[Rfam]
RNA sequence: GCCGGGUGAGGUGGCUCUCACCUGUAAUCCAAGCUACCUGGAGGCUGAAGCUGGAGGAUUGCUUGAGCUCAGGAGCUCUGAGCUGCAGUGGGCUAUGUUGAGCGGGGGUCCACACUAAGUUCAGUAUAGAUAUGGUGUUCCUGGGGGAGCCUUGGACCACCAGGUCCUCUAAGGAGGGGUGAACCGGCCCAGGUCAGGAAUGGAGCAGGCCAAAUCCCCCGUACUGCCCAGUAGUGGGAUCGCCCUUGUGAAUAGAUGCUGUAGUUCAGCCUGAGCAACACAGUGAGACCCAGUCUUUU
Number, nucleotide and partner (000 for none) at each position: 001g045002c044003c043004g023005g022006g021007u020008g019009a018010g017011g016012u000013g000014g000015c000016u011017c010018u009019c008020a007021c006022c005023u004024g000025u000026a000027a000028u042029c041030c040031a000032a000033g000034c000035u000036a000037c000038c000039u000040g030041g029042a028043g003044g002045c001046u000047g297048a296049a000050g294051c293052u292053g291054g290055a000056g000057g000058a000059u286060u285061g284062c283063u282064u000065g000066a000067g276068c275069u274070c273071a272072g271073g270074a000075g000076c000077u000078c269079u268080g267081a266082g265083c264084u263085g262086c261087a260088g259089u258090g257091g000092g000093c255094u254095a253096u252097g000098u250099u000100g000101a000102g249103c248104g247105g246106g245107g244108g243109u242110c238111c237112a000113c236114a235115c234116u233117a232118a000119g229120u000121u000122c226123a225124g224125u223126a222127u221128a000129g166130a165131u164132a000133u162134g161135g160136u159137g158138u000139u156140c155141c154142u000143g152144g151145g150146g000147g000148a000149g000150c145151c144152u143153u000154g141155g140156a139157c000158c137159a136160c135161c134162a133163g000164g131165u130166c129167c000168u174169c173170u000171a000172a000173g169174g168175a000176g219177g218178g217179g216180u000181g000182a000183a000184c000185c000186g211187g210188c209189c208190c000191a000192g000193g000194u203195c202196a201197g000198g000199a000200a000201u196202g195203g194204a000205g000206c000207a000208g189209g188210c187211c186212a000213a000214a000215u000216c179217c178218c177219c176220c000221g127222u126223a125224c124225u123226g122227c000228c000229c119230a000231g000232u117233a116234g115235u114236g113237g111238g110239a000240u000241c000242g109243c108244c107245c106246u105247u104248g103249u102250g098251a000252a096253u095254a094255g093256a000257u090258g089259c088260u087261g086262u085263a084264g083265u082266u081267c080268a079269g078270c073271c072272u071273g070274a069275g068276c067277a000278a000279c000280a000281c000282a063283g062284u061285g060286a059287g000288a000289c000290c054291c053292a052293g051294u050295c000296u048297u047298u000299u000
A member of the RNA family "Metazoan signal recognition particle RNA" from Poecilia reticulata, 299 nucleotides long. The family's RNA type in Rfam is non-coding RNA gene. Rfam's curators write: The signal recognition particle (SRP) is a universally conserved ribonucleoprotein. A search with the family's covariance model found it, with a score of 257 bits. The family's consensus secondary structure is taken from published work.